[Rfam]
RNA: serC leader
RNA sequence: CGGCGGGCCACGACCCCCCAACGGGUUGCAGCCCUUCUGCAAGGAAGGGAGAC
Numbered sequence: 001c002g003g004c005g006g007g008c009c010a011c012g013a014c015c016c017c018c019c020a021a022c023g024g025g026u027u028g029c030a031g032c033c034c035u036u037c038u039g040c041a042a043g044g045a046a047g048g049g050a051g052a053c
Base pairs, nucleotide, nucleotide: 011028012027013026014025015024016023033048034047035046036045037044038043